Small nucleolar RNA SNORD121A: an 87-nucleotide sequence from Bucorvus abyssinicus.
Rfam links the family to the GO terms nucleolus and RNA processing.
The family's consensus secondary structure was predicted with WAR.
Rfam classes the family as a C/D-box small nucleolar RNA.
The literature on the family includes a 2006 paper in Nucleic Acids Res by Yang et al., "snoSeeker: an advanced computational package for screening of guide and orphan snoRNA genes in the human genome".
It scores 44 bits against the family's covariance model.
[Rfam]
RNA sequence: GUCCAAAAUACAGUGGUGUUUUCUUUUCUAAGCAUAUAUCUAAGUGCUUUGUUGUGGAAAAUGACUGUUGCUGAGUGAUUUUUGUAU
Numbered sequence: 001g002u003c004c005a006a007a008a009u010a011c012a013g014u015g016g017u018g019u020u021u022u023c024u025u026u027u028c029u030a031a032g033c034a035u036a037u038a039u040c041u042a043a044g045u046g047c048u049u050u051g052u053u054g055u056g057g058a059a060a061a062u063g064a065c066u067g068u069u070g071c072u073g074a075g076u077g078a079u080u081u082u083u084g085u086a087u
Base pairs, nucleotide, nucleotide: 001087002086004084005083006082008080009077010076011075